[Rfam]
RNA sequence: GGGGGUGCACUGGUUUCGACGGGGGUCGCGAAGUCGCUUGGCGCAUGCCGAGGGGGCAGCUUUCCUCGUUAAUCCAGCAGCAAACUUUUAGUUGCCAACGAUGACAACUACGGUUCGGACUUCGCUAUCGCCGCUUAAUUGGCUUUAGUUGUCGUUCUACAGCCGCCUAAGGCGAACCCCCGAACCUACUUGUGCCCGUGCUCGUAGGUGUAGGGUCAUUAUCACGGAACCAUCGGUAGUGGCUGCCUGUCAGCUACCGGUUAGAUAAAGCAGGCUGGUUUUCAGGUGCGCUUUGCCAACCGUGCUGCCUGGGAAUGAGAUCUAACGGAGGGCUAAGCAUGUAGUGCUGGGGAUGGAGUGCUUCCGGACGGCGGUUCGAUUCCGCCCACCUCCACCA
Numbered sequence: 001g002g003g004g005g006u007g008c009a010c011u012g013g014u015u016u017c018g019a020c021g022g023g024g025g026u027c028g029c030g031a032a033g034u035c036g037c038u039u040g041g042c043g044c045a046u047g048c049c050g051a052g053g054g055g056g057c058a059g060c061u062u063u064c065c066u067c068g069u070u071a072a073u074c075c076a077g078c079a080g081c082a083a084a085c086u087u088u089u090a091g092u093u094g095c096c097a098a099c100g101a102u103g104a105c106a107a108c109u110a111c112g113g114u115u116c117g118g119a120c121u122u123c124g125c126u127a128u129c130g131c132c133g134c135u136u137a138a139u140u141g142g143c144u145u146u147a148g149u150u151g152u153c154g155u156u157c158u159a160c161a162g163c164c165g166c167c168u169a170a171g172g173c174g175a176a177c178c179c180c181c182g183a184a185c186c187u188a189c190u191u192g193u194g195c196c197c198g199u200g201c202u203c204g205u206a207g208g209u210g211u212a213g214g215g216u217c218a219u220u221a222u223c224a225c226g227g228a229a230c231c232a233u234c235g236g237u238a239g240u241g242g243c244u245g246c247c248u249g250u251c252a253g254c255u256a257c258c259g260g261u262u263a264g265a266u267a268a269a270g271c272a273g274g275c276u277g278g279u280u281u282u283c284a285g286g287u288g289c290g291c292u293u294u295g296c297c298a299a300c301c302g303u304g305c306u307g308c309c310u311g312g313g314a315a316u317g318a319g320a321u322c323u324a325a326c327g328g329a330g331g332g333c334u335a336a337g338c339a340u341g342u343a344g345u346g347c348u349g350g351g352g353a354u355g356g357a358g359u360g361c362u363u364c365c366g367g368a369c370g371g372c373g374g375u376u377c378g379a380u381u382c383c384g385c386c387c388a389c390c391u392c393c394a395c396c397a
Stems, first nucleotide, its partner, number of pairs: 001393007020366007033354003037350001039349004044341005049068005056081002059078003125148003130143004178215003182211001187210006196227005232261006243277001245275004278316010289304003295333003300328002370386005
Record summary
Rfam assigns this 397-nucleotide sequence from Xanthomonas oryzae to the family "transfer-messenger RNA". Its family is annotated with RNA catabolic process in the Gene Ontology. The family's RNA type in Rfam is non-coding RNA gene. The source organism's lineage runs through Bacteria, Pseudomonadota, Lysobacterales, Xanthomonas oryzae and Xanthomonas oryzae pv. oryzae. Pairs were carried over by alignment from the consensus structure, which is taken from published work. From the family's description: Bacterial tmRNA, also known as 10Sa RNA or SsrA, is named for its dual tRNA and mRNA-like properties. Its role is to liberate the mRNA from a stalled ribosome.